[Rfam]
RNA sequence: GUCAACCACUCGCCAAUAAAUUGACGGGCAUGUAAUGUGCCCUGGUUGACCAGAUCCCCGAUUAGGAGCUUUGGAAAAUCGGGAAACGAUAGGAACGAAUUUCAUAGUUACCCUGAAAUGCCGCCUCAGUUUCAGGCUCUAAGGAUGCCGGUUAAACAGUCCUGGGAGGUAGGGACAGUGCUUGCAUCAUACAAACCGUUCCAUAUCAGAUCGAGAGGAAGCCGGA
Number, nucleotide and partner (000 for none) at each position: 001g050002u049003c048004a047005a046006c045007c044008a043009c000010u028011c027012g025013c000014c000015a022016a021017u000018a000019a000020a000021u016022u015023g000024a000025c012026g000027g011028g010029c039030a038031u037032g000033u000034a000035a000036u000037g031038u030039g029040c000041c000042c000043u008044g007045g006046u005047u004048g003049a002050c001051c000052a000053g212054a211055u210056c000057c083058c082059c081060g080061a079062u078063u077064a000065g000066g000067a000068g000069c000070u000071u000072u000073g000074g000075a000076a000077a063078a062079u061080c060081g059082g058083g057084a000085a000086a000087c000088g207089a206090u205091a204092g202093g201094a200095a199096c198097g197098a000099a000100u000101u000102u000103c000104a000105u000106a000107g000108u142109u141110a000111c000112c136113c135114u134115g133116a132117a131118a130119u129120g222121c221122c000123g000124c218125c217126u216127c215128a000129g119130u118131u117132u116133c115134a114135g113136g112137c000138u000139c000140u000141a109142a108143g000144g188145a187146u186147g185148c184149c000150g182151g181152u180153u000154a000155a000156a179157c178158a000159g176160u175161c174162c173163u172164g000165g170166g000167a000168g000169g000170u165171a000172g163173g162174g161175a160176c159177a000178g157179u156180g152181c151182u150183u000184g148185c147186a146187u145188c144189a000190u000191a000192c000193a000194a000195a000196c000197c097198g096199u095200u094201c093202c092203a000204u091205a090206u089207c088208a000209g000210a055211u054212c053213g000214a000215g127216a126217g125218g124219a000220a000221g121222c120223c000224g000225g000226a000
Overview:
The family of this 226-nucleotide RNA is "HNH endonuclease-associated RNA and ORF (HEARO) RNA". For this family Rfam cites "Exceptional structured noncoding RNAs revealed by bacterial metagenome analysis" (Weinberg et al., Nature, 2009). The match comes from Rfam's covariance-model search (112 bits). The family's RNA type in Rfam is non-coding RNA gene.